[Rfam]
RNA sequence: GUGGGCUAUGGGGACAUGUAUCCCAUGACAAUUGGUGGCAAGAUUGUGGGUUCUCUGUGUGCCAUCGCGGGUGUGCUCACCAUUGCCCUCCCUGUCCCUGUCAUUGUGUCCAAC
Numbered sequence: 001g002u003g004g005g006c007u008a009u010g011g012g013g014a015c016a017u018g019u020a021u022c023c024c025a026u027g028a029c030a031a032u033u034g035g036u037g038g039c040a041a042g043a044u045u046g047u048g049g050g051u052u053c054u055c056u057g058u059g060u061g062c063c064a065u066c067g068c069g070g071g072u073g074u075g076c077u078c079a080c081c082a083u084u085g086c087c088c089u090c091c092c093u094g095u096c097c098c099u100g101u102c103a104u105u106g107u108g109u110c111c112a113a114c
Stems, first nucleotide, its partner, number of pairs: 001114002004111002007108005013102004018097001020095002037077004049063003